[Rfam]
RNA sequence: CGAGCAUCAGUGAUGAGCGGUUAUAAUUCCUUGCAUUUGGAUUGUUAGUGAAGAAUCUUAUGGGGAAUUAUUACUCUGAUAUGUUC
Number, nucleotide and partner (000 for none) at each position: 001c000002g086003a085004g084005c083006a082007u081008c000009a000010g000011u000012g000013a000014u000015g000016a000017g000018c000019g000020g000021u000022u000023a000024u000025a000026a000027u000028u000029c000030c000031u000032u000033g000034c000035a000036u000037u000038u000039g000040g000041a000042u000043u000044g000045u000046u000047a000048g000049u000050g000051a000052a000053g000054a000055a000056u000057c000058u000059u000060a000061u000062g000063g000064g000065g000066a000067a000068u000069u000070a000071u000072u000073a000074c000075u000076c000077u000078g000079a000080u000081a007082u006083g005084u004085u003086c002